[Rfam]
Nucleotides: 117
Base pairs, nucleotide, nucleotide: 003037004036005035006034007033008032009031013030014029015028016027017026018025045074046073047072048071049070050069051068054063055062056061081112083110085108086107087106088105089104090103091102092101093100094099
Number, partner (000 for none) and nucleotide at each position: 001000c002000a003037c004036c005035u006034c007033u008032u009031u010000a011000a012000u013030u014029c015028a016027g017026u018025c019000c020000g021000g022000u023000g024000a025018g026017g027016c028015u029014g030013a031009a032008a033007a034006g035005a036004g037003g038000u039000a040000u041000a042000a043000a044000u045074c046073a047072a048071g049070c050069g051068g052000c053000a054063g055062a056061u057000u058000u059000u060000u061056g062055u063054c064000g065000u066000c067000c068051c069050c070049g071048c072047u073046u074045g075000c076000g077000a078000u079000u080000u081112g082000u083110a084000c085108c086107u087106c088105u089104u090103u091102g092101u093100c094099c095000u096000c097000u098000c099094g100093g101092g102091c103090a104089a105088g106087g107086a108085g109000u110083u111000u112081u113000u114000u115000a116000a117000u